[Rfam]
RNA sequence: UGAAAAGGUGGCUAGGGUUCCGGCUCCGCACAGCGGGGUGACUGGUCCGAGAGCUGCCGGCCCGAGUCGGCUGCAUACCGACACUGGCUCCACGGCGGGACAAAAGCCCGGGAGGU
Number, nucleotide and partner (000 for none) at each position: 001u000002g000003a000004a000005a000006a000007g058008g057009u056010g055011g054012c053013u000014a000015g048016g047017g000018u000019u000020c045021c044022g042023g039024c038025u037026c036027c035028g034029c000030a000031c000032a000033g000034c028035g027036g026037g025038g024039u023040g000041a000042c022043u000044g021045g020046u000047c016048c015049g000050a000051g000052a000053g012054c011055u010056g009057c008058c007059g089060g088061c087062c086063c000064g084065a000066g082067u081068c080069g079070g078071c000072u000073g000074c000075a000076u000077a000078c070079c069080g068081a067082c066083a000084c064085u000086g062087g061088c060089u059090c000091c111092a000093c114094g000095g000096c000097g109098g108099g107100a000101c000102a000103a000104a000105a000106g000107c099108c098109c097110g000111g091112g000113a000114g093115g000116u000
Background:
Guanidine-I riboswitch aptamer: a 116-nucleotide RNA from Aquabacterium sp. NJ1. A reference for the family is Battaglia et al. (2017), "Structural basis for guanidine sensing by the ykkC family of riboswitches", RNA. It scores 89 bits against the family's covariance model.